[Rfam]
RNA sequence: GGGUUUGCAUGUAGAACGGGGGUCACCUAUAUAGGGGGUGCCCGCAAGGGCUAUGGCGAUAAACUGUCAUUGUAAUAAACCCAUCGGACCCGGGGGCAGUACCCGGCGCCUCCACCAAUCACCCGUGUCAUGGCGCGGCAAAUGGGGGCGAAAUAGGAUCGACGGGGGCGUAAAGAAUGUGCUUUUGCUCGGUGAGGUACCACCGUUAUCGGUCCAAAAACUUAUAGUUGCCAAUGACAACCAUAAGGCUCCGGUUGCUCUCGCUGCGUAAUGCGGUGCUAGCACUGGGAAUUUAAGUCCUCCGCCCCUAGCCGGGCGACAGGCGGGGUCCGCAGGCACCUGGCAACAGAAGCCUGCAUU
Numbered sequence: 001g002g003g004u005u006u007g008c009a010u011g012u013a014g015a016a017c018g019g020g021g022g023u024c025a026c027c028u029a030u031a032u033a034g035g036g037g038g039u040g041c042c043c044g045c046a047a048g049g050g051c052u053a054u055g056g057c058g059a060u061a062a063a064c065u066g067u068c069a070u071u072g073u074a075a076u077a078a079a080c081c082c083a084u085c086g087g088a089c090c091c092g093g094g095g096g097c098a099g100u101a102c103c104c105g106g107c108g109c110c111u112c113c114a115c116c117a118a119u120c121a122c123c124c125g126u127g128u129c130a131u132g133g134c135g136c137g138g139c140a141a142a143u144g145g146g147g148g149c150g151a152a153a154u155a156g157g158a159u160c161g162a163c164g165g166g167g168g169c170g171u172a173a174a175g176a177a178u179g180u181g182c183u184u185u186u187g188c189u190c191g192g193u194g195a196g197g198u199a200c201c202a203c204c205g206u207u208a209u210c211g212g213u214c215c216a217a218a219a220a221c222u223u224a225u226a227g228u229u230g231c232c233a234a235u236g237a238c239a240a241c242c243a244u245a246a247g248g249c250u251c252c253g254g255u256u257g258c259u260c261u262c263g264c265u266g267c268g269u270a271a272u273g274c275g276g277u278g279c280u281a282g283c284a285c286u287g288g289g290a291a292u293u294u295a296a297g298u299c300c301u302c303c304g305c306c307c308c309u310a311g312c313c314g315g316g317c318g319a320c321a322g323g324c325g326g327g328g329u330c331c332g333c334a335g336g337c338a339c340c341u342g343g344c345a346a347c348a349g350a351a352g353c354c355u356g357c358a359u360u
Stems, first nucleotide, its partner, number of pairs: 040051004055189005066182002068179004080168003084165003090106005107150007190205004196215002199213003326341004332357006
Dot-bracket structure: .......................................((((....))))...(((((......((((((........(((.(((...(((((.......)))))(((((((..............................)))))))............)))))).......)))).))..)))))((((..[[.[[[)))).....]]]]]..............................................................................................................[[[[..((((((]]]]..........))))))...